[Rfam]
RNA sequence: CGAGGAACGCGAGCUUGUGACCCAUGUGGGGGCACACAAGGUUGAGGGACAUGUGAGGCAUGGAAGGGGAGGAGGGGAGAUGCGUGGCAUAUUACGCGGCUCGCCCUGGUCCAAGUAGAGAGUUGUUGCAAGGCCCAUCCUCGAAAGAGGGAGGUCUGUCUUGCGGCCUAGAGAGGAGGGGACUGCGUGAGGCUGGUUUCACAGAGCAACGAUAACCACCCGCUCCCUACAGUGGAAGGAUAACGAGCUGCUUGUCCCUCUUCCCGCAAUCCUCCCGUCCCGCUCAUAAUCGAACAUCAACCUUU
Numbered sequence: 001c002g003a004g005g006a007a008c009g010c011g012a013g014c015u016u017g018u019g020a021c022c023c024a025u026g027u028g029g030g031g032g033c034a035c036a037c038a039a040g041g042u043u044g045a046g047g048g049a050c051a052u053g054u055g056a057g058g059c060a061u062g063g064a065a066g067g068g069g070a071g072g073a074g075g076g077g078a079g080a081u082g083c084g085u086g087g088c089a090u091a092u093u094a095c096g097c098g099g100c101u102c103g104c105c106c107u108g109g110u111c112c113a114a115g116u117a118g119a120g121a122g123u124u125g126u127u128g129c130a131a132g133g134c135c136c137a138u139c140c141u142c143g144a145a146a147g148a149g150g151g152a153g154g155u156c157u158g159u160c161u162u163g164c165g166g167c168c169u170a171g172a173g174a175g176g177a178g179g180g181g182a183c184u185g186c187g188u189g190a191g192g193c194u195g196g197u198u199u200c201a202c203a204g205a206g207c208a209a210c211g212a213u214a215a216c217c218a219c220c221c222g223c224u225c226c227c228u229a230c231a232g233u234g235g236a237a238g239g240a241u242a243a244c245g246a247g248c249u250g251c252u253u254g255u256c257c258c259u260c261u262u263c264c265c266g267c268a269a270u271c272c273u274c275c276c277g278u279c280c281c282g283c284u285c286a287u288a289a290u291c292g293a294a295c296a297u298c299a300a301c302c303u304u305u
Stems, first nucleotide, its partner, number of pairs: 001013001021030003038304008047295001050292001052289001055285003059282001062280003066276002069274004074265007082258001084257001086256003091252001096251008105239002110236004115230004120225004125167010135154002138151005168173001175220002178217002186211003193204003
About this RNA
The family of this 305-nucleotide RNA sequence from Taxus chinensis is "Plant signal recognition particle RNA". The base pairs follow the family's consensus structure, which is taken from published work. Clan: SRP clan. The match comes from Rfam's covariance-model search (172 bits). The family's RNA type in Rfam is non-coding RNA gene. Lineage of the source: Eukaryota > Tracheophyta > Pinopsida > Conifers II > Taxus.